Shown here is a 247-nucleotide RNA sequence from Paenibacillus graminis, a member of the family "BsrG". bsrE, bsrG and bsrH pair through intermolecular interactions with antisense sRNAs. They form type I toxin/antitoxin system that includes an mRNA encoding for a short, toxic peptide (bsrE, bsrG and bsrH) and an antitoxin that is comprised of an antisense RNA. bsrG encodes a 39-amino-acid toxin, and the 180 nucleotide antisense sRNA called SR4 acts as the antitoxin (they overlap by 123 nucleotides). SR4 interaction with the 3'UTR of bsrG RNA promotes bsrG degradation and inhibits its translation. BsrG interferes with cell envelope biosynthesis, causes membrane invaginations and delocalisation of the cell wall synthesis and initiates autolysis. bsrE RNA encodes 30 amino-acid toxin peptide. A reference for the family is Saito et al. (2008), "Novel small RNA-encoding genes in the intergenic regions of Bacillus subtilis", Gene.

RNA sequence: GCAAUGGAAGGCUUGCAAGGGCGGUCGGCUAAUCUCCCGGAAGGGAGGUGAAGCCUGUGGAGGUAUACCAAGCAUUGACGCUGAUGAUUUCAUUCGCGACUCUGGUUGUGCUGAUUCUUUCUUUCCACAAAAAGAAAUAGGCCGCCCUGGUCAAAGGUAGCGGUCCUAUUUCGGUAGGUAAGCCUUUUAAAAGCCGCCGCCCUUAAAAGCGGCUAUUGCUCCGAGAGUCGUGUUAGCCGCACGGCUC
Numbered sequence: 001g002c003a004a005u006g007g008a009a010g011g012c013u014u015g016c017a018a019g020g021g022c023g024g025u026c027g028g029c030u031a032a033u034c035u036c037c038c039g040g041a042a043g044g045g046a047g048g049u050g051a052a053g054c055c056u057g058u059g060g061a062g063g064u065a066u067a068c069c070a071a072g073c074a075u076u077g078a079c080g081c082u083g084a085u086g087a088u089u090u091c092a093u094u095c096g097c098g099a100c101u102c103u104g105g106u107u108g109u110g111c112u113g114a115u116u117c118u119u120u121c122u123u124u125c126c127a128c129a130a131a132a133a134g135a136a137a138u139a140g141g142c143c144g145c146c147c148u149g150g151u152c153a154a155a156g157g158u159a160g161c162g163g164u165c166c167u168a169u170u171u172c173g174g175u176a177g178g179u180a181a182g183c184c185u186u187u188u189a190a191a192a193g194c195c196g197c198c199g200c201c202c203u204u205a206a207a208a209g210c211g212g213c214u215a216u217u218g219c220u221c222c223g224a225g226a227g228u229c230g231u232g233u234u235a236g237c238c239g240c241a242c243g244g245c246u247c
Stems, first nucleotide, its partner, number of pairs: 001219005007213001010195005016150001018148004023142001025140001030051001032049001034047005059121005065115001073086002098111001161173003197212004225247009
Its family is annotated with toxin activity and autolysis in the Gene Ontology.